[Rfam]
RNA sequence: GAGGGUAGGCCCUUCGGGUUCGCCGAUCAGGCGGUGAUCCCAAACCACCUUGGGCUGCAUACGUAAAGAGCGUGUGUGGUGAGCGCCAUGGGAAAAGGCGGAGCAAGACUCCGUUAGGU
Numbered sequence: 001g002a003g004g005g006u007a008g009g010c011c012c013u014u015c016g017g018g019u020u021c022g023c024c025g026a027u028c029a030g031g032c033g034g035u036g037a038u039c040c041c042a043a044a045c046c047a048c049c050u051u052g053g054g055c056u057g058c059a060u061a062c063g064u065a066a067a068g069a070g071c072g073u074g075u076g077u078g079g080u081g082a083g084c085g086c087c088a089u090g091g092g093a094a095a096a097g098g099c100g101g102a103g104c105a106a107g108a109c110u111c112c113g114u115u116a117g118g119u
Stems, first nucleotide, its partner, number of pairs: 001015005016041003020037002023034003046118001048091002051088003054080002057077003061073004097115006
Rfam assigns this 119-nucleotide sequence from Brenneria rubrifaciens to the family "Group II catalytic intron D1-D4-2". Rfam's curators write: Group II introns are found in rRNA, tRNA and mRNA of organelles in fungi, plants and protists, and also in mRNA in bacteria. The base pairs follow the family's consensus structure. The literature on the family includes a 2001 paper in Trends Genet by Bonen and Vogel, "The ins and outs of group II introns".